[Rfam]
RNA sequence: CCCGCCAAGCCUCUUUACAAUGCUUAAAUCGACGGGG
Dot-bracket structure: ((((.(.(((...........)))......).)))).
This 37-nucleotide RNA belongs to the Rfam family "abiF RNA".
The base pairs follow the family's consensus structure, which is taken from published work.
Actinobacteria, Bacteroidetes, Clostridia, Proteobacteria, one Clostridia phage.